This 149-nucleotide RNA from Lactuca sativa belongs to the Rfam family "Small nucleolar RNA snoR145".
The source organism's lineage runs through Eukaryota, Euphyllophyta, Magnoliopsida, Cichorioideae and Lactuca.

RNA sequence: UAUCGAAGGUCCCAGCAGGGAGGUUGAUUUACUCUUAACGAGUCCUCUCUAACACAUUUUAAUUACCUUCGAAGAUAUAUUUUGCCGAAUCGUAGGAUGCUCUAAAGUUUUCCAUUUUAGUGAUGUCUUGAAAUCUCGGCUAUAAUCUA
Numbered sequence: 001u002a003u004c005g006a007a008g009g010u011c012c013c014a015g016c017a018g019g020g021a022g023g024u025u026g027a028u029u030u031a032c033u034c035u036u037a038a039c040g041a042g043u044c045c046u047c048u049c050u051a052a053c054a055c056a057u058u059u060u061a062a063u064u065a066c067c068u069u070c071g072a073a074g075a076u077a078u079a080u081u082u083u084g085c086c087g088a089a090u091c092g093u094a095g096g097a098u099g100c101u102c103u104a105a106a107g108u109u110u111u112c113c114a115u116u117u118u119a120g121u122g123a124u125g126u127c128u129u130g131a132a133a134u135c136u137c138g139g140c141u142a143u144a145a146u147c148u149a
Stems, first nucleotide, its partner, number of pairs: 003072007011020003026049002032042003084140005096127002099124001100122001102120005

Annotation
The family's RNA type in Rfam is H/ACA-box small nucleolar RNA.